[Rfam]
RNA sequence: GGCGGGUCGCCCCGCAUUGCAUGAUCGUGAACCUGGUCAGGUCCGGAAGGAAGCAGCCAUAGCGAUUCUCUGCAAGUGCCGGGGGAACGGCUCGCCACC
Dot-bracket structure: ...(((((.((((((.(((((.((((((.....((((....(((....)))....))))..))))))...))))))...)))))....)))))......
A member of the RNA family "Bacterial small signal recognition particle RNA" from a Burkholderiales bacterium, 99 nucleotides long. The family's RNA type in Rfam is non-coding RNA gene. NCBI's taxonomy places the organism under Bacteria, Pseudomonadati, Pseudomonadota, Betaproteobacteria, Burkholderiales. The family's consensus secondary structure is taken from published work.